[Rfam]
RNA sequence: CCCGCGCUGCGUUACUGGCGAUCAAGGGGCUGUGCCCCAGAGGUGGGUUUCCACCGGGAAGCGCGGCCGGGCUGAGCCCGCUUCGUGCCGUUCGCCUGGGCCACCCGC
Dot-bracket structure: ..(..(((((((..(([[[[[.....................((((....))))..))..)))))))..)................(((..]]]]]..))).......